[Rfam]
Nucleotides: 101
Stems, first nucleotide, its partner, number of pairs: 007088004011052004017026003033046004057082004063076004
Number, partner (000 for none) and nucleotide at each position: 001000u002000u003000u004000a005000u006000g007088u008087g009086c010085u011052a012051g013050g014049g015000g016000u017026g018025u019024c020000g021000a022000a023000a024019g025018g026017c027000u028000g029000a030000g031000a032000a033046a034045u035044g036043g037000a038000u039000a040000u041000u042000a043036c044035c045034a046033u047000u048000a049014c050013c051012c052011u053000c054000a055000u056000a057082c058081c059080u060079g061000a062000u063076c064075u065074g066073g067000g068000u069000c070000a071000u072000a073066c074065c075064a076063g077000c078000g079060u080059a081058g082057g083000g084000a085010a086009g087008c088007a089000g090000u091000a092000a093000u094000a095000a096000u097000u098000u099000c100000u101000u